A member of the RNA family "mir-395 microRNA precursor family" from Nicotiana attenuata, 101 nucleotides long.
Nucleotides: 101
Base pairs, nucleotide, nucleotide: 006096007095008094009093011091012090013089014088015087016086017085018084019083020082022081024078025077026076027075028074029073030072033069034068035067
Number, partner (000 for none) and nucleotide at each position: 001000g002000u003000g004000u005000u006096c007095c008094c009093u010000a011091g012090a013089g014088u015087u016086c017085c018084c019083u020082u021000g022081a023000c024078c025077g026076c027075u028074u029073c030072a031000u032000g033069a034068g035067g036000g037000c038000u039000u040000a041000c042000u043000u044000c045000u046000c047000c048000a049000u050000a051000a052000a053000u054000u055000a056000u057000u058000g059000u060000u061000u062000g063000a064000a065000g066000c067035c068034c069033u070000g071000c072030u073029g074028a075027a076026g077025u078024g079000u080000u081022u082020g083019g084018g085017g086016g087015a088014a089013c090012u091011c092000c093009a094008g095007g096006g097000u098000u099000c100000a101000c
Source information
NCBI's taxonomy places the organism under Eukaryota, Streptophytina, asterids, Solanaceae, Nicotiana. A reference for the family is Jones-Rhoades and Bartel (2004), "Computational Identification of Plant MicroRNAs and Their Targets, Including a Stress-Induced miRNA", Mol Cell. From the family's description: mir-395 was identified in both Arabidopsis thaliana and Oryza sativa computationally and was later experimentally verified. mir-395 is thought to target mRNAs coding for ATP sulphurylases. The mature sequence is excised from the 3' arm of the hairpin. The base pairs follow the family's consensus structure, which was predicted with PFOLD.